[Rfam]
RNA sequence: GGUCCAGAUUUUGAGGCCAUAGCAGAAGCACACAUGGUGCAUCCCUGUCAGAUUCCAGUGAAUCUGCAAAUUCUGCU
Numbered sequence: 001g002g003u004c005c006a007g008a009u010u011u012u013g014a015g016g017c018c019a020u021a022g023c024a025g026a027a028g029c030a031c032a033c034a035u036g037g038u039g040c041a042u043c044c045c046u047g048u049c050a051g052a053u054u055c056c057a058g059u060g061a062a063u064c065u066g067c068a069a070a071u072u073c074u075g076c077u
Stems, first nucleotide, its partner, number of pairs: 013045001015044002021077007028040003049066007
Dot-bracket structure: ............[.[[....((((((((((.......)))..]]]...(((((((....)))))))....)))))))

Overview
Shown here is a 77-nucleotide RNA from Crocodylus porosus, a member of the family "Mammalian CPEB3 ribozyme". The family's consensus secondary structure is taken from published work. The match comes from Rfam's covariance-model search (52 bits). NCBI's taxonomy places the organism under Eukaryota, Opisthokonta, Metazoa, Deuterostomia, Crocodylus.